[Rfam]
RNA sequence: CUGCAGUGAUGCUUCUCUUAGGAUACCUUUGGAUAUAUCAUGAAAACAAACCAGUUCGUGGUCUGGGAGGUGGCGCAGC
Numbered sequence: 001c002u003g004c005a006g007u008g009a010u011g012c013u014u015c016u017c018u019u020a021g022g023a024u025a026c027c028u029u030u031g032g033a034u035a036u037a038u039c040a041u042g043a044a045a046a047c048a049a050a051c052c053a054g055u056u057c058g059u060g061g062u063c064u065g066g067g068a069g070g071u072g073g074c075g076c077a078g079c
Stems, first nucleotide, its partner, number of pairs: 001078004
Dot-bracket structure: ((((......................................................................)))).